The family of this 94-nucleotide RNA from Desulfosporosinus fructosivorans is "c-di-GMP-I riboswitch aptamer". Rfam links the family to the GO term cyclic-di-GMP binding.
RNA sequence: AAGAAUAGUGGGCAAAUCUAUCGAAAGGUAGAGACGCAAAGCCACGGGUCUACCGAUAGUACUUCAUUCUGUCAUAGAUAGCCGGGUUGCAGAA
Numbered sequence: 001a002a003g004a005a006u007a008g009u010g011g012g013c014a015a016a017u018c019u020a021u022c023g024a025a026a027g028g029u030a031g032a033g034a035c036g037c038a039a040a041g042c043c044a045c046g047g048g049u050c051u052a053c054c055g056a057u058a059g060u061a062c063u064u065c066a067u068u069c070u071g072u073c074a075u076a077g078a079u080a081g082c083c084g085g086g087u088u089g090c091a092g093a094a
Base pairs, nucleotide, nucleotide: 012037013036017032018031019030020029021028022027040088041087042086043085045084046083047082048079049078050077055073056072057071058070